[Rfam]
RNA: c-di-AMP riboswitch aptamer (ydaO/yuaA leader)
Organism: Bacillus subtilis
Nucleotides: 149
Stems, first nucleotide, its partner, number of pairs: 011133004018027002028128006038067002068113003076088004090108004
Number, partner (000 for none) and nucleotide at each position: 001000u002000c003000u004000c005000u006000u007000u008000u009000a010000c011133c012132g013131c014130u015000u016000a017000a018027u019026c020000a021000a022000a023000c024000a025000c026019g027018a028128a029127c030126g031125g032124g033123g034000g035000a036000a037000c038067c039066a040000a041000c042000g043000a044000u045000u046000g047000g048000c049000u050000g051000u052000u053000u054000u055000a056000u057000u058000a059000a060000c061000a062000g063000c064000c065000u066039u067038g068113g069112g070111g071000u072000g073000a074000a075000u076088c077087u078086u079085a080000c081000u082000a083000a084000g085079u086078a087077a088076g089000a090108g091107g092106g093105g094000g095000u096000a097000c098000u099000c100000u101000g102000a103000a104000u105093c106092c107091c108090u109000a110000a111070u112069c113068c114000g115000a116000c117000a118000g119000c120000u121000a122000a123033c124032c125031u126030c127029g128028u129000a130014g131013g132012c133011g134000u135000a136000u137000a138000c139000a140000g141000a142000g143000a144000g145000g146000a147000g148000g149000u